[Rfam]
RNA: MIR2118 microRNA precursor family
RNA sequence: GCCGGGAAGAGGAAGAAUGAGAGGGUCCAAGAGUAAUAUGAAUGGGAACAUCGAGGAAAGCGUGAGGUUUCUAGAUUUCCUCUGCUUACAAUGGAGAGAUCUUGCUCUGUGUUUUUCCGAUGCCUCCCAUUCCUAUUGUUCUUGGGUACUCCUUCCCCUUCAUUUUGGCU
Numbered sequence: 001g002c003c004g005g006g007a008a009g010a011g012g013a014a015g016a017a018u019g020a021g022a023g024g025g026u027c028c029a030a031g032a033g034u035a036a037u038a039u040g041a042a043u044g045g046g047a048a049c050a051u052c053g054a055g056g057a058a059a060g061c062g063u064g065a066g067g068u069u070u071c072u073a074g075a076u077u078u079c080c081u082c083u084g085c086u087u088a089c090a091a092u093g094g095a096g097a098g099a100u101c102u103u104g105c106u107c108u109g110u111g112u113u114u115u116u117c118c119g120a121u122g123c124c125u126c127c128c129a130u131u132c133c134u135a136u137u138g139u140u141c142u143u144g145g146g147u148a149c150u151c152c153u154u155c156c157c158c159u160u161c162a163u164u165u166u167g168g169c170u
Base pairs, nucleotide, nucleotide: 009161010160011159012158015155016154017153021151022150023149026146027145028144029143030142031141032140033139034138035137037135038134040132041131042130043129044128045127046126047125049122050121051120053118055117056116057115058114059113060112061111